About this RNA
The family of this 162-nucleotide sequence from Streptomyces finlayi is "c-di-AMP riboswitch aptamer (ydaO/yuaA leader)". Pairs were carried over by alignment from the consensus structure. About the family: This family represents a conserved RNA structure found upstream of the ydaO and yuaA genes in Bacillus subtilis and related genes in other bacteria. It scores 62 bits against the family's covariance model. Lineage of the source: Bacteria > Actinomycetota > Actinomycetes > Kitasatosporales > Streptomyces.

RNA sequence: CGCCCGGAAUCCGCAUCCACUCACGUGUGGCAGGAGCGGGGGACCCAGGUAAGCCGCCGGUCCGGAGAAUUCCGGAACGACUCGGGGUGAAGUCGCGCCAGCGCGACCGGGCAUCUCCAGCCCGAACCCGACAGCUCACCUCGUAGGCGCCGGAGAGGAAUG
Number, nucleotide and partner (000 for none) at each position: 001c149002g148003c147004c146005c000006g000007g000008a000009a000010u035011c034012c033013g000014c000015a000016u000017c000018c000019a000020c000021u000022c000023a000024c000025g000026u000027g000028u000029g000030g000031c000032a000033g012034g011035a010036g144037c143038g142039g141040g140041g139042g000043a000044c000045c000046c084047a000048g000049g000050u000051a000052a000053g000054c000055c000056g000057c000058c000059g000060g000061u000062c000063c000064g000065g000066a000067g000068a000069a000070u000071u000072c000073c000074g000075g000076a000077a000078c000079g000080a000081c000082u000083c000084g046085g129086g128087g127088u000089g000090a000091a000092g000093u106094c105095g104096c103097g000098c000099c000100a000101g000102c000103g096104c095105g094106a093107c000108c000109g123110g122111g121112c120113a000114u000115c000116u000117c000118c000119a000120g112121c111122c110123c109124g000125a000126a000127c087128c086129c085130g000131a000132c000133a000134g000135c000136u000137c000138a000139c041140c040141u039142c038143g037144u036145a000146g004147g003148c002149g001150c000151c000152g000153g000154a000155g000156a000157g000158g000159a000160a000161u000162g000